Rfam assigns this 194-nucleotide RNA sequence from Palaemonvirus pssm7 to the family "manA RNA". It is annotated as a cis-regulatory element. It scores 176 bits against the family's covariance model. From the family's description: manA RNA has been located in 5'UTR regions of genes of mannose or fructose metabolism. Has been proposed as a cis-regulatory element and as a riboswitch candidate for his complex secondary structure.

RNA sequence: UGAGUUGACGAACCCAACGGGGAGUGACUGAAUAAUCUUUCUGGCAUAUAGCUGGAUAAGGUGAUGAGACACAGGUGGUGCUGCUGCGAAAGCAGAAUCGACUUACCAGUCGGGUCUCAGGCAGAGAUGUAAAAUUUACUACUGUAGUAAUGCCCGUCUCUUAUUGGUAAUACAGAAACCCAAUCUCCCACCCC
Numbered sequence: 001u002g003a004g005u006u007g008a009c010g011a012a013c014c015c016a017a018c019g020g021g022g023a024g025u026g027a028c029u030g031a032a033u034a035a036u037c038u039u040u041c042u043g044g045c046a047u048a049u050a051g052c053u054g055g056a057u058a059a060g061g062u063g064a065u066g067a068g069a070c071a072c073a074g075g076u077g078g079u080g081c082u083g084c085u086g087c088g089a090a091a092g093c094a095g096a097a098u099c100g101a102c103u104u105a106c107c108a109g110u111c112g113g114g115u116c117u118c119a120g121g122c123a124g125a126g127a128u129g130u131a132a133a134a135u136u137u138a139c140u141a142c143u144g145u146a147g148u149a150a151u152g153c154c155c156g157u158c159u160c161u162u163a164u165u166g167g168u169a170a171u172a173c174a175g176a177a178a179c180c181c182a183a184u185c186u187c188c189c190a191c192c193c194c
Base pairs, nucleotide, nucleotide: 001016002015004013005012006011020189021188022187023186024185027062028061040056041055042054043053044052045051065119066118067117068116069115070114072083073082074081076108077107078106079105084095085094086093087092098113099112100111101110102109123161124160125159126158127157128156129155136150137149138148139147142175143174144173145172163184164183165182166181167180